[Rfam]
The record is a 184-nucleotide RNA, which matches "malK-I RNA" in Rfam.
RNA sequence: UUUAAUGGCGCUUUCCCACUCCACACCAAUGGGGCGGCGUACAUCAAAAAGGAGGUCAAAAAUCCGUCCGGCUCGCGGUGCGGCAGUGUGGAGACCUGUCGUAAAAGGAACACGUUCUAUAAAAAUCGAACGGUUUUGAGAUGAUUUUUGCGGAGGCUGGAUCAUCAGAGCUGAGAACAUGAGU
Numbered sequence: 001u002u003u004a005a006u007g008g009c010g011c012u013u014u015c016c017c018a019c020u021c022c023a024c025a026c027c028a029a030u031g032g033g034g035c036g037g038c039g040u041a042c043a044u045c046a047a048a049a050a051g052g053a054g055g056u057c058a059a060a061a062a063u064c065c066g067u068c069c070g071g072c073u074c075g076c077g078g079u080g081c082g083g084c085a086g087u088g089u090g091g092a093g094a095c096c097u098g099u100c101g102u103a104a105a106a107g108g109a110a111c112a113c114g115u116u117c118u119a120u121a122a123a124a125a126u127c128g129a130a131c132g133g134u135u136u137u138g139a140g141a142u143g144a145u146u147u148u149u150g151c152g153g154a155g156g157c158u159g160g161a162u163c164a165u166c167a168g169a170g171c172u173g174a175g176a177a178c179a180u181g182a183g184u
Base pairs, nucleotide, nucleotide: 008040009039010038011037012036014034015033016032017031018030064078065077066076067075069173070172071171072170073169074168079103080102081101082100083099084098085097086096088095089094107137108136109135110134111133113132114131115130116129117128140166141165142164143163144162145161146160147159150157151156
The family's RNA type in Rfam is cis-regulatory element.